[Rfam]
RNA: Small nucleolar RNA SNORA9
RNA sequence: GAGCAAGCCUUCCAGCAUGGCUGGGUCUGAGGUGACCCUGGUCAUUCCUGUAGCGCUUGCGAGAGCAGCCCUGAGAUGGUUUGAGGCCUCACUCUCCUCCUUUUCAGAGUGAGGCUGUUAAAAUUUCAGACAGGC
Dot-bracket structure: ..((((((.........(((..(((((......)))))...)))..........))))))...........(((((..........((((((.((..........)).)))))).........))))).......
Numbered sequence: 001g002a003g004c005a006a007g008c009c010u011u012c013c014a015g016c017a018u019g020g021c022u023g024g025g026u027c028u029g030a031g032g033u034g035a036c037c038c039u040g041g042u043c044a045u046u047c048c049u050g051u052a053g054c055g056c057u058u059g060c061g062a063g064a065g066c067a068g069c070c071c072u073g074a075g076a077u078g079g080u081u082u083g084a085g086g087c088c089u090c091a092c093u094c095u096c097c098u099c100c101u102u103u104u105c106a107g108a109g110u111g112a113g114g115c116u117g118u119u120a121a122a123a124u125u126u127c128a129g130a131c132a133g134g135c
Stems, first nucleotide, its partner, number of pairs: 003060006018044003023038005072128005087114006094107002